[Rfam]
RNA: RNase MRP
Organism: Plectosphaerella cucumerina
RNA sequence: CCCUCGCCCAACAGAUCGCCAUUCGAAGCUCACAAACCGAGAAGUCGGGCUCCGCCCGGCUUCUCUUCGCAAAUUUGGCUUUGGGAGAAAGUCCCCGGACACCCUCUUCCGAGCAGGAGAGGCCGCGGAAACGCGCCGCCACAGAAGCACUGCGGCUGACCUCCAGCAGCCCUCGGUUCGUGCCAGCUCCCUUCACCCCGCCUCGCCGCUACAUCGGUGCUUGCCCUCUCCUCUCAUGGUCCUUCCAACAGCCGGGAAGGCUGGGCCCAGGACCUCAUGGACGAAGAUAUGAGUCCGCGCCUGGAUUCAGUCGGUCUGUGCUGUGGGCCUUGAGGGGCUGAGGGUGGUGUCGAUGGCGUGUGCGGUCGUCGAUUGGAGUGAGUGCCGGGCCGGCUCGGGGCCGCUGAGGAAUUUUCGUCGAGAUACGAAAGAAAUGCGAUUGCCCUCCUCCUUCUGGAGGUUGGUUACUCGAUGGGGCUUAUUCUUGGUGCGAGG
Numbered sequence: 001c002c003c004u005c006g007c008c009c010a011a012c013a014g015a016u017c018g019c020c021a022u023u024c025g026a027a028g029c030u031c032a033c034a035a036a037c038c039g040a041g042a043a044g045u046c047g048g049g050c051u052c053c054g055c056c057c058g059g060c061u062u063c064u065c066u067u068c069g070c071a072a073a074u075u076u077g078g079c080u081u082u083g084g085g086a087g088a089a090a091g092u093c094c095c096c097g098g099a100c101a102c103c104c105u106c107u108u109c110c111g112a113g114c115a116g117g118a119g120a121g122g123c124c125g126c127g128g129a130a131a132c133g134c135g136c137c138g139c140c141a142c143a144g145a146a147g148c149a150c151u152g153c154g155g156c157u158g159a160c161c162u163c164c165a166g167c168a169g170c171c172c173u174c175g176g177u178u179c180g181u182g183c184c185a186g187c188u189c190c191c192u193u194c195a196c197c198c199c200g201c202c203u204c205g206c207c208g209c210u211a212c213a214u215c216g217g218u219g220c221u222u223g224c225c226c227u228c229u230c231c232u233c234u235c236a237u238g239g240u241c242c243u244u245c246c247a248a249c250a251g252c253c254g255g256g257a258a259g260g261c262u263g264g265g266c267c268c269a270g271g272a273c274c275u276c277a278u279g280g281a282c283g284a285a286g287a288u289a290u291g292a293g294u295c296c297g298c299g300c301c302u303g304g305a306u307u308c309a310g311u312c313g314g315u316c317u318g319u320g321c322u323g324u325g326g327g328c329c330u331u332g333a334g335g336g337g338c339u340g341a342g343g344g345u346g347g348u349g350u351c352g353a354u355g356g357c358g359u360g361u362g363c364g365g366u367c368g369u370c371g372a373u374u375g376g377a378g379u380g381a382g383u384g385c386c387g388g389g390c391c392g393g394c395u396c397g398g399g400g401c402c403g404c405u406g407a408g409g410a411a412u413u414u415u416c417g418u419c420g421a422g423a424u425a426c427g428a429a430a431g432a433a434a435u436g437c438g439a440u441u442g443c444c445c446u447c448c449u450c451c452u453u454c455u456g457g458a459g460g461u462u463g464g465u466u467a468c469u470c471g472a473u474g475g476g477g478c479u480u481a482u483u484c485u486u487g488g489u490g491c492g493a494g495g
Stems, first nucleotide, its partner, number of pairs: 002495006008488004014441006023085001024083006039065012089480003093477004108129004291308006310402001312400001316398003320394004443464002447460004